[Rfam]
RNA sequence: GCCUCCAGGGGGAUAAGGGCAUCGCCUCCUUUCUUGAAAGACACUCCCUUCUGAUGGCGAUGGGAACUCCCUUCCUCCUGCAGCAGCCUGCCUGCUGUACAGUGUGAAUGUUGCAGCAGCCAGGGCUCCAGAAAGACAGCGCCCCAGAGC
Numbered sequence: 001g002c003c004u005c006c007a008g009g010g011g012g013a014u015a016a017g018g019g020c021a022u023c024g025c026c027u028c029c030u031u032u033c034u035u036g037a038a039a040g041a042c043a044c045u046c047c048c049u050u051c052u053g054a055u056g057g058c059g060a061u062g063g064g065a066a067c068u069c070c071c072u073u074c075c076u077c078c079u080g081c082a083g084c085a086g087c088c089u090g091c092c093u094g095c096u097g098u099a100c101a102g103u104g105u106g107a108a109u110g111u112u113g114c115a116g117c118a119g120c121c122a123g124g125g126c127u128c129c130a131g132a133a134a135g136a137c138a139g140c141g142c143c144c145c146a147g148a149g150c
Stems, first nucleotide, its partner, number of pairs: 003149003008145004014136001016049004025040001027037002050132003057077001059074001060072001062071003078119004083114004088110001091106001
RNA: FGF-1 internal ribosome entry site (IRES)